[Rfam]
RNA sequence: CCAAAGGCUCUUUUAAGAGCCACACACGUUUUCCUUUAAAGAGCUU
Numbered sequence: 001c002c003a004a005a006g007g008c009u010c011u012u013u014u015a016a017g018a019g020c021c022a023c024a025c026a027c028g029u030u031u032u033c034c035u036u037u038a039a040a041g042a043g044c045u046u
Stems, first nucleotide, its partner, number of pairs: 006021006
The record is a 46-nucleotide RNA sequence from Struthio camelus, which matches "Histone 3' UTR stem-loop" in Rfam. The family's RNA type in Rfam is cis-regulatory element. Pairs were carried over by alignment from the consensus structure, which is taken from published work.